[Rfam]
RNA sequence: ACUGCCUCGGGGCCCAUCAGCACACAGGCAGGAGCGGGGGAACCAAUUCCUCCGGAUGUCCGCGGACAUCCUCGGGGUGAAGCCCUUUGCCUGGUCGUCACGACCAGGUCAGGGCCGGGCACGAACCUCUGCCCGAACCCGACAGCUAACUUCGUAGGCGUUGAGAGGUAGCGCA
Numbered sequence: 001a002c003u004g005c006c007u008c009g010g011g012g013c014c015c016a017u018c019a020g021c022a023c024a025c026a027g028g029c030a031g032g033a034g035c036g037g038g039g040g041a042a043c044c045a046a047u048u049c050c051u052c053c054g055g056a057u058g059u060c061c062g063c064g065g066a067c068a069u070c071c072u073c074g075g076g077g078u079g080a081a082g083c084c085c086u087u088u089g090c091c092u093g094g095u096c097g098u099c100a101c102g103a104c105c106a107g108g109u110c111a112g113g114g115c116c117g118g119g120c121a122c123g124a125a126c127c128u129c130u131g132c133c134c135g136a137a138c139c140c141g142a143c144a145g146c147u148a149a150c151u152u153c154g155u156a157g158g159c160g161u162u163g164a165g166a167g168g169u170a171g172c173g174c175a
Base pairs, nucleotide, nucleotide: 003160004159005158006157034155035154036153037152038151039150044074075140076139077138083114084113085112086111117134118133119132120131

Description:
Rfam assigns this 175-nucleotide sequence from Humibacillus sp. DSM 29435 to the family "c-di-AMP riboswitch aptamer (ydaO/yuaA leader)". It scores 62 bits against the family's covariance model. The base pairs follow the family's consensus structure.